[Rfam]
RNA sequence: AACUCCUGUUUCUGCCUCAUCUUCUUUUGCUUCAAUAGAUUAAUGGGUCUUGCUAUGGAGAAUAUAAAGGUGGGGAACGACUUCAUUACACAUUUUGAUACAACCGUAAUUUAGUUUUUGCCCAUAUCGUGAAAUAGUAUCAUCCAACCCAUUUUUUCAUGCCUUUUGGCAUCUUGAUAUUUGGGAUUUGAUACUACUCUACAACU
Numbered sequence: 001a002a003c004u005c006c007u008g009u010u011u012c013u014g015c016c017u018c019a020u021c022u023u024c025u026u027u028u029g030c031u032u033c034a035a036u037a038g039a040u041u042a043a044u045g046g047g048u049c050u051u052g053c054u055a056u057g058g059a060g061a062a063u064a065u066a067a068a069g070g071u072g073g074g075g076a077a078c079g080a081c082u083u084c085a086u087u088a089c090a091c092a093u094u095u096u097g098a099u100a101c102a103a104c105c106g107u108a109a110u111u112u113a114g115u116u117u118u119u120g121c122c123c124a125u126a127u128c129g130u131g132a133a134a135u136a137g138u139a140u141c142a143u144c145c146a147a148c149c150c151a152u153u154u155u156u157u158c159a160u161g162c163c164u165u166u167u168g169g170c171a172u173c174u175u176g177a178u179a180u181u182u183g184g185g186a187u188u189u190g191a192u193a194c195u196a197c198u199c200u201a202c203a204a205c206u
Base pairs, nucleotide, nucleotide: 003060004059005058006057016047017046018045019044020042023039024038025037070125071124072123073122074121076119077118079116080115081114082113085110086109087108088107089106131199132198137194138193139192140191141190148185149184150183151182159172160171161170162169163168
This 206-nucleotide RNA from Naumovozyma dairenensis belongs to the Rfam family "Small nucleolar RNA snR43".
For this family Rfam cites "The RNA world of the nucleolus: two major families of small RNAs defined by different box elements with related functions" (Balakin et al., Cell, 1996).
Rfam classes the family as an H/ACA-box small nucleolar RNA.
Clan: SNORA9 clan.
Taxonomically the source falls in Naumovozyma dairenensis (Eukaryota, Opisthokonta, Saccharomycotina, Saccharomycetes).